[Rfam]
RNA sequence: GGCUCGGGAGCGCCCGGUGGGACGGGCGCAGGAAUGGAGCCCGCCCCCUUCAUUCGUGAGCGGCGCACCGCCGGGGCCCGACGGCCGGUGCA
Numbered sequence: 001g002g003c004u005c006g007g008g009a010g011c012g013c014c015c016g017g018u019g020g021g022a023c024g025g026g027c028g029c030a031g032g033a034a035u036g037g038a039g040c041c042c043g044c045c046c047c048c049u050u051c052a053u054u055c056g057u058g059a060g061c062g063g064c065g066c067a068c069c070g071c072c073g074g075g076g077c078c079c080g081a082c083g084g085c086c087g088g089u090g091c092a
Stems, first nucleotide, its partner, number of pairs: 001041005010029007065091004070085004
RNA: Rhodo-rpoB RNA